[Rfam]
RNA sequence: UGGCACCCAAUGUGGGGCUCGAGUACGAGGGUUCCCCGUGAAGGACGUUGUUUGAGUAGUUAAGAAAUUUCUGGCCAGAUGGCUGUAGAGGAGGCAGCCCGGGACUCAAGGAGACAGUCGCAUGGGAGCCUGCCACGUGACUCAGGACUUGGUAAGUGAACAACGACAAUGGGACAGGAAUUGAGUCAGCAUGAAAAGUUUGUAAUAGGUCUUAAAGAAGCUCUAAAGAUGUGAGGAGCAAAGGUUAAGAAAAAACAAUUAAUAGAUUUUUUUAGAUUUCUUAGUGACCUUUGUCCAU
Numbered sequence: 001u002g003g004c005a006c007c008c009a010a011u012g013u014g015g016g017g018c019u020c021g022a023g024u025a026c027g028a029g030g031g032u033u034c035c036c037c038g039u040g041a042a043g044g045a046c047g048u049u050g051u052u053u054g055a056g057u058a059g060u061u062a063a064g065a066a067a068u069u070u071c072u073g074g075c076c077a078g079a080u081g082g083c084u085g086u087a088g089a090g091g092a093g094g095c096a097g098c099c100c101g102g103g104a105c106u107c108a109a110g111g112a113g114a115c116a117g118u119c120g121c122a123u124g125g126g127a128g129c130c131u132g133c134c135a136c137g138u139g140a141c142u143c144a145g146g147a148c149u150u151g152g153u154a155a156g157u158g159a160a161c162a163a164c165g166a167c168a169a170u171g172g173g174a175c176a177g178g179a180a181u182u183g184a185g186u187c188a189g190c191a192u193g194a195a196a197a198g199u200u201u202g203u204a205a206u207a208g209g210u211c212u213u214a215a216a217g218a219a220g221c222u223c224u225a226a227a228g229a230u231g232u233g234a235g236g237a238g239c240a241a242a243g244g245u246u247a248a249g250a251a252a253a254a255a256c257a258a259u260u261a262a263u264a265g266a267u268u269u270u271u272u273u274a275g276a277u278u279u280c281u282u283a284g285u286g287a288c289c290u291u292u293g294u295c296c297a298u
Stems, first nucleotide, its partner, number of pairs: 006031003012026003036082004111150003115145001120141001121137001123135003157176002161173001164171002182225002185221002232274007242260002245257001283298001286295003